[Rfam]
RNA sequence: GUGCAUCCAAUAGGAAUUGAACCUAUGAAUUAACGAAUUAUGAGUUGGGUGCUUUAAUCAUUCAACCAUGGAUGC
Numbered sequence: 001g002u003g004c005a006u007c008c009a010a011u012a013g014g015a016a017u018u019g020a021a022c023c024u025a026u027g028a029a030u031u032a033a034c035g036a037a038u039u040a041u042g043a044g045u046u047g048g049g050u051g052c053u054u055u056a057a058u059c060a061u062u063c064a065a066c067c068a069u070g071g072a073u074g075c
Stems, first nucleotide, its partner, number of pairs: 003075006010026005040069003044066008
A member of the RNA family "Plastid-ycf2 5UTR RNA" from Handroanthus impetiginosus, 75 nucleotides long. Rfam describes the family as follows. Plastid ycf2 is a non-coding RNA (ncRNA) recognised in plastids. It was found in the prime untranslated region (5UTR) of ycf2 genes, it presents a tRNA-like motif which suggests it can be involved in mRNA maturation, particularly involved in defining the precise 5' end of the transcript. A reference for the family is Richter et al. (2023), "Retrograde signaling in plants: A critical review focusing on the GUN pathway and beyond", Plant Commun. Rfam 15.1 lists 3,521 matches to the family in 417 species. NCBI's taxonomy places the organism under Eukaryota, Streptophytina, Mesangiospermae, lamiids, Handroanthus. Rfam classes the family as a cis-regulatory element. It scores 95 bits against the family's covariance model.